RNA sequence: UGCUGCUUUGGCCUUCUCUUCCUGCUUCUUCCCGGAGUCGGGAAAAACUGAGUUGAGAGGGCGGGAAAAAAAAAAA
Numbered sequence: 001u002g003c004u005g006c007u008u009u010g011g012c013c014u015u016c017u018c019u020u021c022c023u024g025c026u027u028c029u030u031c032c033c034g035g036a037g038u039c040g041g042g043a044a045a046a047a048c049u050g051a052g053u054u055g056a057g058a059g060g061g062c063g064g065g066a067a068a069a070a071a072a073a074a075a076a
Stems, first nucleotide, its partner, number of pairs: 014059005021052001023050002029044006
Record summary:
The family of this 76-nucleotide RNA from Microcebus murinus is "mir-320 microRNA precursor family". Taxonomically the source falls in Microcebus (Eukaryota, Opisthokonta, Theria, Cheirogaleidae). On this family, see Berezikov et al., Genome Res 2006: "Many novel mammalian microRNA candidates identified by extensive cloning and RAKE analysis". The family's consensus secondary structure was predicted with RNAalifold.